Description
A member of the RNA family "mir-728 microRNA precursor family" from Mola mola, 62 nucleotides long. Gene Ontology terms of the family: RISC complex and miRNA-mediated post-transcriptional gene silencing. It scores 78 bits against the family's covariance model.
RNA sequence: AAAUGUAGUAGACUAUAAGUAUACGUAACACUCGGAAUGUAUACUAAGUAUACUACGUUUUC
Numbered sequence: 001a002a003a004u005g006u007a008g009u010a011g012a013c014u015a016u017a018a019g020u021a022u023a024c025g026u027a028a029c030a031c032u033c034g035g036a037a038u039g040u041a042u043a044c045u046a047a048g049u050a051u052a053c054u055a056c057g058u059u060u061u062c
Stems, first nucleotide, its partner, number of pairs: 001060009012049003018045007